[Rfam]
RNA sequence: ACAAGUACUUGGUAUCCUUCUGAAGUCAAACAGAGAAGUCACAGGGUAGCACCUGAGGGACUGU
Numbered sequence: 001a002c003a004a005g006u007a008c009u010u011g012g013u014a015u016c017c018u019u020c021u022g023a024a025g026u027c028a029a030a031c032a033g034a035g036a037a038g039u040c041a042c043a044g045g046g047u048a049g050c051a052c053c054u055g056a057g058g059g060a061c062u063g064u
Stems, first nucleotide, its partner, number of pairs: 001064003006059001008057002012053001016046004021041003025031002